Notes
Small nucleolar RNA SNORA70: a 132-nucleotide sequence from Lipotes vexillifer. The base pairs follow the family's consensus structure, which was predicted with PFOLD. Rfam's curators write: snoRNA U70 seems to be exclusive to mammals and is a member of the H/ACA class of snoRNA which contain H (ANANNA) and ACA box motifs. H/ACA box snoRNAs are involved in the conversion of uridines to pseudouridines (5-ribosyluracil) a constituent of structural RNAs (transfer, ribosomal, small nuclear, and small nucleolar). For this family Rfam cites "Pseudouridine in RNA: what, where, how, and why" (Charette and Gray, IUBMB Life, 2000).
[Rfam]
Nucleotides: 132
Base pairs, nucleotide, nucleotide: 016045017044018043019042022039023038024037025036075120076119077118086108087107088106089105090104091103
Number, partner (000 for none) and nucleotide at each position: 001000a002000u003000g004000g005000g006000u007000a008000u009000c010000a011000a012000g013000c014000c015000g016045a017044c018043u019042g020000u021000g022039c023038u024037c025036u026000u027000u028000u029000c030000c031000c032000c033000a034000u035000g036025g037024g038023g039022g040000c041000c042019c043018g044017g045016u046000g047000c048000g049000c050000a051000a052000u053000g054000g055000c056000u057000g058000c059000a060000a061000a062000c063000a064000g065000c066000a067000g068000c069000c070000u071000c072000c073000u074000c075120g076119g077118u078000a079000a080000u081000g082000u083000a084000u085000g086108c087107a088106g089105c090104c091103u092000g093000u094000u095000g096000c097000c098000u099000g100000u101000a102000u103091g104090g105089g106088u107087u108086g109000c110000c111000c112000u113000a114000a115000g116000g117000a118077a119076c120075c121000u122000u123000g124000g125000a126000g127000a128000c129000a130000g131000c132000c